Shown here is a 73-nucleotide sequence from Actinoallomurus bryophytorum, a member of the family "tRNA".

RNA sequence: GCCUCCGUAGCUCAGAUGGCAGAGCGUCCGCCUUGUAAGCGGAUGGUCGCCGGUUCGACUCCGGCCGGAGGCU
Numbered sequence: 001g002c003c004u005c006c007g008u009a010g011c012u013c014a015g016a017u018g019g020c021a022g023a024g025c026g027u028c029c030g031c032c033u034u035g036u037a038a039g040c041g042g043a044u045g046g047u048c049g050c051c052g053g054u055u056c057g058a059c060u061c062c063g064g065c066c067g068g069a070g071g072c073u
Stems, first nucleotide, its partner, number of pairs: 001072007010025004027043005049065005

From the family's description: Transfer RNA (tRNA) molecules are approximately 80 nucleotides in length. Rfam links the family to the GO term triplet codon-amino acid adaptor activity.